This 66-nucleotide sequence from Aquimarina sp. TRL1 belongs to the Rfam family "S15-Flavobacteria ribosomal protein leader". By type it is a cis-regulatory leader.
[Rfam]
RNA sequence: UAUAUUUGCCAGCUAAUAAUAGAUAUUUUAUUAUACAUAAAAAUCAUUAAAACUAAUAUUGGAAUG
Number, nucleotide and partner (000 for none) at each position: 001u000002a000003u000004a000005u000006u000007u000008g000009c000010c000011a000012g000013c000014u033015a032016a031017u030018a029019a028020u000021a000022g000023a000024u000025a000026u000027u000028u019029u018030a017031u016032u015033a014034u000035a000036c000037a000038u000039a000040a000041a000042a000043a000044u000045c000046a000047u000048u000049a000050a000051a000052a000053c000054u000055a000056a000057u000058a000059u000060u000061g000062g000063a000064a000065u000066g000
Background: The source organism's lineage runs through Bacteria, Pseudomonadati, Flavobacteriia, Flavobacteriaceae and Aquimarina. On this family, see Eckert and Weinberg, BMC Microbiol 2020: "Discovery of 20 novel ribosomal leader candidates in bacteria and archaea". The family is grouped with related families in Rfam's "Ribosomal Protein S15 Leader clan".